[Rfam]
Nucleotides: 089
Stems, first nucleotide, its partner, number of pairs: 007083001009081005020030004032069003035065002039063001041061001045056002
Number, partner (000 for none) and nucleotide at each position: 001000c002000g003000g004000a005000c006000a007083u008000a009081c010080u011079c012078u013077g014000g015000a016000g017000a018000g019000u020030g021029c022028c023027a024000u025000u026000u027023u028022g029021g030020c031000c032069g033068c034067c035065g036064a037000a038000g039063g040000u041061g042000u043000a044000a045056g046055g047000a048000u049000u050000g051000a052000g053000a054000u055046c056045c057000a058000a059000a060000u061041c062000u063039c064036u065035c066000a067034g068033g069032c070000a071000a072000a073000a074000g075000g076000a077013c078012a079011g080010a081009g082000c083007a084000a085000a086000a087000g088000a089000c